Annotation
Group II catalytic intron D1-D4-2: a 118-nucleotide RNA from Neobacillus cucumis.
[Rfam]
RNA sequence: GAGAGUAGGCCUCUCGCAAUCGCUAUACAGGUAGAGAUUGCAAACCACCCUAAGGUGCUGUAGUCAAAAGCUAUGGUAUUGAGCGUUAGGGAAAAGGCAGAGCAAGACUCUGUCAGGU
Numbered sequence: 001g002a003g004a005g006u007a008g009g010c011c012u013c014u015c016g017c018a019a020u021c022g023c024u025a026u027a028c029a030g031g032u033a034g035a036g037a038u039u040g041c042a043a044a045c046c047a048c049c050c051u052a053a054g055g056u057g058c059u060g061u062a063g064u065c066a067a068a069a070g071c072u073a074u075g076g077u078a079u080u081g082a083g084c085g086u087u088a089g090g091g092a093a094a095a096g097g098c099a100g101a102g103c104a105a106g107a108c109u110c111u112g113u114c115a116g117g118u
Stems, first nucleotide, its partner, number of pairs: 001015005016041006023034004046117001048091006054080002057077003061073004096114006

Notes
A reference for the family is Chu et al. (2001), "Control of branch-site choice by a group II intron", EMBO J. Rfam's curators write: Group II introns are found in rRNA, tRNA and mRNA of organelles in fungi, plants and protists, and also in mRNA in bacteria. It scores 119 bits against the family's covariance model. Taxonomically the source falls in Neobacillus (Bacteria, Bacilli, Caryophanales, Bacillaceae). Its family is annotated with Group II intron splicing in the Gene Ontology. The family has 144 seed sequences and 1,231 matches in Rfam 15.1.